[Rfam]
RNA sequence: CAUUGAUAAAGGCAAACUUAUUGAAAGAUAAGGACGCAAAGCCAUGGGUCUACGGAAAGAUUUUUCUAUGAUUGCCAGGUUGCCAAA
Numbered sequence: 001c002a003u004u005g006a007u008a009a010a011g012g013c014a015a016a017c018u019u020a021u022u023g024a025a026a027g028a029u030a031a032g033g034a035c036g037c038a039a040a041g042c043c044a045u046g047g048g049u050c051u052a053c054g055g056a057a058a059g060a061u062u063u064u065u066c067u068a069u070g071a072u073u074g075c076c077a078g079g080u081u082g083c084c085a086a087a
Stems, first nucleotide, its partner, number of pairs: 012037002017032006040081004045077003048072003055066004
Dot-bracket structure: ...........((...((((((....))))))...))..((((.((((((....((((....))))...)))..)))))))......
RNA: c-di-GMP-I riboswitch aptamer
Organism: Anaerosolibacter carboniphilus